[Rfam]
The record is a 65-nucleotide sequence from Dickeya dadantii, which matches "DnaX ribosomal frameshifting element" in Rfam. Rfam links the family to the GO term translational frameshifting. The match comes from Rfam's covariance-model search (47 bits). The base pairs follow the family's consensus structure, which is taken from published work. Rfam describes the family as follows. This family represents a ribosomal frameshifting element found in the mRNA of the dnaX gene in E. coli. The dnaX gene has two encoded products tau and gamma which are produced in a 1:1 ratio. By type it is a frameshift element.
RNA sequence: GACAGGGAAACACCCCAACAAAAAAGACUGAACCGGCGGCGUCAGGAAAAACGCGGCCGGUAAAC
Numbered sequence: 001g002a003c004a005g006g007g008a009a010a011c012a013c014c015c016c017a018a019c020a021a022a023a024a025a026g027a028c029u030g031a032a033c034c035g036g037c038g039g040c041g042u043c044a045g046g047a048a049a050a051a052c053g054c055g056g057c058c059g060g061u062a063a064a065c
Stems, first nucleotide, its partner, number of pairs: 032061006039054002042050001

NCBI's taxonomy places the organism under Bacteria, Pseudomonadati, Pseudomonadota, Enterobacterales, Dickeya dadantii.